[Rfam]
RNA sequence: AUAACAGAUAGAGGUCGCACUGUCUAAGAGUAAAUAUUCGGAGGUGGAGGAAUCCUAUGAUGGGUAUUGAAAGGAGUCAGUGCCGAAGGAUCAGUUAUCCUCAAACUGGUGCCUGGGACCAGGAUUAACAGUCCUGGUACUGUCAUCAUAGUAUUAUGAUGGAGAGCUAUCUGGUGG
Number, nucleotide and partner (000 for none) at each position: 001a000002u000003a000004a000005c000006a172007g171008a170009u169010a168011g167012a000013g000014g000015u000016c000017g083018c082019a081020c080021u079022g078023u000024c076025u075026a000027a000028g000029a000030g000031u000032a000033a068034a067035u066036a065037u064038u063039c062040g061041g000042a000043g000044g000045u000046g000047g000048a000049g000050g000051a000052a000053u000054c000055c000056u000057a000058u000059g000060a000061u040062g039063g038064g037065u036066a035067u034068u033069g000070a000071a000072a000073g000074g000075a025076g024077u000078c022079a021080g020081u019082g018083c017084c000085g000086a000087a114088g113089g112090a110091u109092c108093a107094g106095u105096u104097a000098u000099c000100c000101u000102c000103a000104a096105a095106c094107u093108g092109g091110u090111g000112c089113c088114u087115g141116g140117g000118a138119c137120c136121a135122g134123g133124a132125u131126u000127a000128a000129c000130a000131g125132u124133c123134c122135u121136g120137g119138u118139a000140c116141u115142g000143u162144c161145a160146u159147c158148a157149u156150a000151g000152u000153a000154u000155u000156a149157u148158g147159a146160u145161g144162g143163a000164g000165a000166g000167c011168u010169a009170u008171c007172u006173g000174g000175u000176g000177g000
Rfam assigns this 177-nucleotide RNA from Calorimonas adulescens to the family "Lysine riboswitch aptamer". Lineage of the source: Bacteria > Bacillati > Thermoanaerobacterales > Thermoanaerobacteraceae > Calorimonas. Pairs were carried over by alignment from the consensus structure, which is taken from published work.